[Rfam]
RNA sequence: CUCUUAUCCCGAGCUGGUGGAGGGACAGGCCCUAUGAAACCCAGCAACCUGCCAAUUAUUAUAAUAGAUCAAACUUGGUCUGUUCAUUGGAAAAGGUGCUAAACCUGCGCAAGGUAUAGACCUUGAACGAUAAGAG
Numbered sequence: 001c002u003c004u005u006a007u008c009c010c011g012a013g014c015u016g017g018u019g020g021a022g023g024g025a026c027a028g029g030c031c032c033u034a035u036g037a038a039a040c041c042c043a044g045c046a047a048c049c050u051g052c053c054a055a056u057u058a059u060u061a062u063a064a065u066a067g068a069u070c071a072a073a074c075u076u077g078g079u080c081u082g083u084u085c086a087u088u089g090g091a092a093a094a095g096g097u098g099c100u101a102a103a104c105c106u107g108c109g110c111a112a113g114g115u116a117u118a119g120a121c122c123u124u125g126a127a128c129g130a131u132a133a134g135a136g
Stems, first nucleotide, its partner, number of pairs: 001136008013042001016041003022032003026109001029105001043100004048096002050092001052090005110125006
RNA: SAM riboswitch aptamer (S box leader)
Organism: Pseudoneobacillus rhizosphaerae